[Rfam]
RNA sequence: AGCUGCGCGGUGUGCACAGAGCGAACUAUUCUUUCGCCUUUUACUAAAGAAUACCGUGUGUGCGCCGCAAAUAGCAGCAUACGCCUAUUUUUGGAGGGUGCUUUCCCUUUUCGGGAGGGC
Number, nucleotide and partner (000 for none) at each position: 001a000002g000003c077004u076005g075006c074007g000008c067009g066010g065011u064012g063013u062014g061015c060016a059017c058018a057019g000020a000021g000022c000023g000024a000025a000026c000027u053028a052029u051030u050031c049032u048033u047034u046035c000036g000037c000038c000039u000040u000041u000042u000043a000044c000045u000046a034047a033048a032049g031050a030051a029052u028053a027054c000055c000056g000057u018058g017059u016060g015061u014062g013063c012064g011065c010066c009067g008068c000069a000070a000071a000072u000073a000074g006075c005076a004077g003078c000079a000080u000081a000082c000083g000084c000085c000086u000087a000088u000089u000090u000091u000092u000093g000094g000095a000096g000097g000098g000099u000100g000101c119102u118103u117104u116105c115106c114107c000108u000109u000110u000111u000112c000113g000114g106115g105116a104117g103118g102119g101120c000
Source information: Shown here is a 120-nucleotide RNA sequence from Panicum miliaceum, a member of the family "U5 spliceosomal RNA". Rfam 15.1 lists 28,527 matches to the family in 2,489 species. Rfam's curators write: U5 RNA is a component of both types of known spliceosome. By type it is a spliceosomal small nuclear RNA. The source organism's lineage runs through Eukaryota, Spermatophyta, Mesangiospermae, commelinids and Panicum sect. Panicum. Its family is annotated with spliceosomal tri-snRNP complex assembly and U5 snRNP in the Gene Ontology. For this family Rfam cites "The uRNA database" (Zwieb, Nucleic Acids Res, 1997).